[Rfam]
Record summary
MIR1435 microRNA precursor family: a 200-nucleotide sequence from Hordeum vulgare. The base pairs follow the family's consensus structure, which was predicted with RNAalifold. NCBI's taxonomy places the organism under Eukaryota, Magnoliopsida, Petrosaviidae, Poales, Hordeum vulgare.

RNA sequence: AACUUUUGGCUCAAGUCAACCGGUGCAAACUUUGACCAAGUUUGUAGAAAAAACUACCAACAACUACAAUACUAAAUAAAUAUAAUAUUAAACUAUAUUUUAUUAUUGAUUUAACACUACUAACUUGGUAUUGUAGUUGUUGGUAUUUUUUUCCAGAAACUUGGUCAAACUUUGUACCAUUUGACUUGAGCCAAAAGUUA
Numbered sequence: 001a002a003c004u005u006u007u008g009g010c011u012c013a014a015g016u017c018a019a020c021c022g023g024u025g026c027a028a029a030c031u032u033u034g035a036c037c038a039a040g041u042u043u044g045u046a047g048a049a050a051a052a053a054c055u056a057c058c059a060a061c062a063a064c065u066a067c068a069a070u071a072c073u074a075a076a077u078a079a080a081u082a083u084a085a086u087a088u089u090a091a092a093c094u095a096u097a098u099u100u101u102a103u104u105a106u107u108g109a110u111u112u113a114a115c116a117c118u119a120c121u122a123a124c125u126u127g128g129u130a131u132u133g134u135a136g137u138u139g140u141u142g143g144u145a146u147u148u149u150u151u152u153c154c155a156g157a158a159a160c161u162u163g164g165u166c167a168a169a170c171u172u173u174g175u176a177c178c179a180u181u182u183g184a185c186u187u188g189a190g191c192c193a194a195a196a197g198u199u200a
Base pairs, nucleotide, nucleotide: 005195006194007193008192009191011189012188013187014186015185016184017183018182019181022178023177024176025175026174031169032168033167034166035165045155047153048152049151050150051149052148055145056144057143059141060140061139062138063137064136065135066134067133068132072128073127074126075125077123
Background:
The match comes from Rfam's covariance-model search (107 bits).